[Rfam]
RNA: 7SK RNA
RNA sequence: GGAUGUGAGGGCGAUCCGGCCGUGACACCUGUCACCCCACUGAUCGACACGGCUGGUUCGACUGACCCGGCUGUCUAGGUGGGUGUCUCCUUCCUCCCUCGCUGCUCCAUGUGUGUCCCUCAUGAAAGCGCACUUGGUCAAAGAAGAUGACCUUCCCUGGCAGAGACCGUGCCGCUCAUUGGUCAAGGGUGUAUGGUAGCUGUGCUCCCCUGCUAGGACCUCCAAACAAGCUCAAGGUCCAUCUGUAGGAGAACAGAUGUCCUUGGUAGUCAAGCUUCCAAGACUGCAGACACAUCCAAGUGAGGCACUGCACAGGGCAGUGUGCCAUUGUU
Numbered sequence: 001g002g003a004u005g006u007g008a009g010g011g012c013g014a015u016c017c018g019g020c021c022g023u024g025a026c027a028c029c030u031g032u033c034a035c036c037c038c039a040c041u042g043a044u045c046g047a048c049a050c051g052g053c054u055g056g057u058u059c060g061a062c063u064g065a066c067c068c069g070g071c072u073g074u075c076u077a078g079g080u081g082g083g084u085g086u087c088u089c090c091u092u093c094c095u096c097c098c099u100c101g102c103u104g105c106u107c108c109a110u111g112u113g114u115g116u117c118c119c120u121c122a123u124g125a126a127a128g129c130g131c132a133c134u135u136g137g138u139c140a141a142a143g144a145a146g147a148u149g150a151c152c153u154u155c156c157c158u159g160g161c162a163g164a165g166a167c168c169g170u171g172c173c174g175c176u177c178a179u180u181g182g183u184c185a186a187g188g189g190u191g192u193a194u195g196g197u198a199g200c201u202g203u204g205c206u207c208c209c210c211u212g213c214u215a216g217g218a219c220c221u222c223c224a225a226a227c228a229a230g231c232u233c234a235a236g237g238u239c240c241a242u243c244u245g246u247a248g249g250a251g252a253a254c255a256g257a258u259g260u261c262c263u264u265g266g267u268a269g270u271c272a273a274g275c276u277u278c279c280a281a282g283a284c285u286g287c288a289g290a291c292a293c294a295u296c297c298a299a300g301u302g303a304g305g306c307a308c309u310g311c312a313c314a315g316g317g318c319a320g321u322g323u324g325c326c327a328u329u330g331u332u
Stems, first nucleotide, its partner, number of pairs: 001108003005102007013093002018090002024087010036073001037070002042067001044065002046062001048060001117169001119165003123136003138160003146155002199275003205269002208266002212262001213259001220251004226246003230242001299332002302328001304326003307321005